[Rfam]
RNA sequence: UACGUUUUAGUUUUUCGACUUAGUAGGGUUGAUUUUAUGGAUUCGUCCGGUUUGGUAAUUCCGGUUAAAAAUUACCUGGCGCCCAUGGAU
Numbered sequence: 001u002a003c004g005u006u007u008u009a010g011u012u013u014u015u016c017g018a019c020u021u022a023g024u025a026g027g028g029u030u031g032a033u034u035u036u037a038u039g040g041a042u043u044c045g046u047c048c049g050g051u052u053u054g055g056u057a058a059u060u061c062c063g064g065u066u067a068a069a070a071a072u073u074a075c076c077u078g079g080c081g082c083c084c085a086u087g088g089a090u
Base pairs, nucleotide, nucleotide: 009020010019011018012017030045031044032043034041047064048063049062050061054076055075056074057073058072059071